[Rfam]
RNA sequence: GCUGGUGCGGGUAAUGACGGUUUUUACCCGUCAGAGCGACAGUGUUGAUGCUUGAUGCUCAAGCCAGGCUGAGUCUGAUGCACCAGU
Numbered sequence: 001g002c003u004g005g006u007g008c009g010g011g012u013a014a015u016g017a018c019g020g021u022u023u024u025u026a027c028c029c030g031u032c033a034g035a036g037c038g039a040c041a042g043u044g045u046u047g048a049u050g051c052u053u054g055a056u057g058c059u060c061a062a063g064c065c066a067g068g069c070u071g072a073g074u075c076u077g078a079u080g081c082a083c084c085a086g087u
Base pairs, nucleotide, nucleotide: 001087002086003085004084005083006082007081008080009079
RNA: Small nucleolar SNORD12/SNORD106
Organism: Ceuthmochares aereus